Rfam assigns this 44-nucleotide RNA from Paenibacillus yonginensis to the family "PreQ1 (pre queuosine) riboswitch aptamer".
RNA sequence: AUGGGAGAGGUUCGAGAACUCCCUCUAUAAAAAACUAAUCAGCA
Numbered sequence: 001a002u003g004g005g006a007g008a009g010g011u012u013c014g015a016g017a018a019c020u021c022c023c024u025c026u027a028u029a030a031a032a033a034a035c036u037a038a039u040c041a042g043c044a
Stems, first nucleotide, its partner, number of pairs: 006026005016036001
Background: The organism belongs to Paenibacillus, within Bacteria. The family has 43 seed sequences and 873 matches in Rfam 15.1.